[Rfam]
RNA sequence: CCAAAAACAAAAACUAAUCAUCUGAAAGAGCGGCAAUCUAAAAUUACAUUUUAGGUUGUUUAGCUCGUCAGAUGAUUAGUUUUUACCCUAAGUGGGUACCCACUUAG
Numbered sequence: 001c002c003a004a005a006a007a008c009a010a011a012a013a014c015u016a017a018u019c020a021u022c023u024g025a026a027a028g029a030g031c032g033g034c035a036a037u038c039u040a041a042a043a044u045u046a047c048a049u050u051u052u053a054g055g056u057u058g059u060u061u062a063g064c065u066c067g068u069c070a071g072a073u074g075a076u077u078a079g080u081u082u083u084u085a086c087c088c089u090a091a092g093u094g095g096g097u098a099c100c101c102a103c104u105u106a107g
Stems, first nucleotide, its partner, number of pairs: 009084006016077008030064002032060001034058002038054007088107008
Dot-bracket structure: ........((((((.((((((((......(((.((..(((((((...)))))))..)).)..)).....)))))))).))))))...((((((((....))))))))
Record summary: Rfam assigns this 107-nucleotide RNA sequence from Leuconostoc mesenteroides to the family "lactis-plasmid RNA". Lineage of the source: Bacteria > Lactobacillales > Lactobacillaceae > Leuconostoc > Leuconostoc mesenteroides. The family's RNA type in Rfam is small RNA.